RNA: mir-8364 microRNA precursor family
RNA sequence: UCUUCAUUUCGCACACUCUUUCGCCUCUCUGACCGGCGAGAGAGUAUGCGAAAUGAGGAGA
Numbered sequence: 001u002c003u004u005c006a007u008u009u010c011g012c013a014c015a016c017u018c019u020u021u022c023g024c025c026u027c028u029c030u031g032a033c034c035g036g037c038g039a040g041a042g043a044g045u046a047u048g049c050g051a052a053a054u055g056a057g058g059a060g061a
Base pairs, nucleotide, nucleotide: 001059002058003057004056005055006054007053010050012048013047015045016044017043019041020040021039022038